[Rfam]
RNA sequence: AUGAAGAAUGCGGGAGAGACCCUAACCGGGCGCCGAAGGAGCAAGCGGGUAUAUGGCCUGUAUACUCGUGAAACUCUCAGGCAAAAGGACCGCAUUCGGACC
Numbered sequence: 001a002u003g004a005a006g007a008a009u010g011c012g013g014g015a016g017a018g019a020c021c022c023u024a025a026c027c028g029g030g031c032g033c034c035g036a037a038g039g040a041g042c043a044a045g046c047g048g049g050u051a052u053a054u055g056g057c058c059u060g061u062a063u064a065c066u067c068g069u070g071a072a073a074c075u076c077u078c079a080g081g082c083a084a085a086a087g088g089a090c091c092g093c094a095u096u097c098g099g100a101c102c
Base pairs, nucleotide, nucleotide: 006097007096008095009094010093011092012091013090020030021029022028032082033081034080035078036077039076040075041074045069046068047067048066049065050064051063052062053061054060055059
Dot-bracket structure: .....((((((((......(((.....))).(((((..(((...(((((((((((...)))))))))))....))))).))).......)))))))).....